[Rfam]
Background: Rfam assigns this 157-nucleotide sequence from Cajanus cajan to the family "MIR4371 microRNA precursor family".

RNA sequence: CUGUUAAGUGAUGACAUGGCAGACGGACUGCCACGUCAUCACCCAAUAGUGUCUGCCAUGUCAUCUAAGGGACUGCCAUAUGGACAUGUUGAUGAUGUGGCAAAUACUGUUGGAUGAUGACGUGGCAGUCCGUCUGCCAUGUCAUCACUUGACAGUA
Numbered sequence: 001c002u003g004u005u006a007a008g009u010g011a012u013g014a015c016a017u018g019g020c021a022g023a024c025g026g027a028c029u030g031c032c033a034c035g036u037c038a039u040c041a042c043c044c045a046a047u048a049g050u051g052u053c054u055g056c057c058a059u060g061u062c063a064u065c066u067a068a069g070g071g072a073c074u075g076c077c078a079u080a081u082g083g084a085c086a087u088g089u090u091g092a093u094g095a096u097g098u099g100g101c102a103a104a105u106a107c108u109g110u111u112g113g114a115u116g117a118u119g120a121c122g123u124g125g126c127a128g129u130c131c132g133u134c135u136g137c138c139a140u141g142u143c144a145u146c147a148c149u150u151g152a153c154a155g156u157a
Stems, first nucleotide, its partner, number of pairs: 001155041043113004049107004055101005071085001073083003
Rfam 15.1 lists 321 matches to the family in 4 species. Its family is annotated with miRNA-mediated post-transcriptional gene silencing and RISC complex in the Gene Ontology. Clan: MIR4387 microRNA precursor clan. Pairs were carried over by alignment from the consensus structure, which was predicted with RNAalifold.